[Rfam]
A member of the RNA family "Group II catalytic intron D1-D4-3" from Noviherbaspirillum sedimenti, 175 nucleotides long.
RNA sequence: GUCGUCGCGAGGCGGGGUCUGAAGGAAGCUGAACCCAAAGCUGCGGGGCGACGAACAGAAACCGGAUAUGAGGCGUGAUGCAUCCGGGGCCAGCGGGCACGUGACCGUGAAGCCCUCCAUCUACGAUUGGGAUGCAUUUUGUAAAUCCGGCGUCUACGCAGCGAAAGAUACGUGU
Numbered sequence: 001g002u003c004g005u006c007g008c009g010a011g012g013c014g015g016g017g018u019c020u021g022a023a024g025g026a027a028g029c030u031g032a033a034c035c036c037a038a039a040g041c042u043g044c045g046g047g048g049c050g051a052c053g054a055a056c057a058g059a060a061a062c063c064g065g066a067u068a069u070g071a072g073g074c075g076u077g078a079u080g081c082a083u084c085c086g087g088g089g090c091c092a093g094c095g096g097g098c099a100c101g102u103g104a105c106c107g108u109g110a111a112g113c114c115c116u117c118c119a120u121c122u123a124c125g126a127u128u129g130g131g132a133u134g135c136a137u138u139u140u141g142u143a144a145a146u147c148c149g150g151c152g153u154c155u156a157c158g159c160a161g162c163g164a165a166a167g168a169u170a171c172g173u174g175u
Base pairs, nucleotide, nucleotide: 002015003014004013005012006011028175029174036167040162041161042160043159044158045157046155047154048153049152050151062150063149064148065147066146067145073142074141075140077138078137079136080135081134082133083132087115088114089113090112093108094107095106096105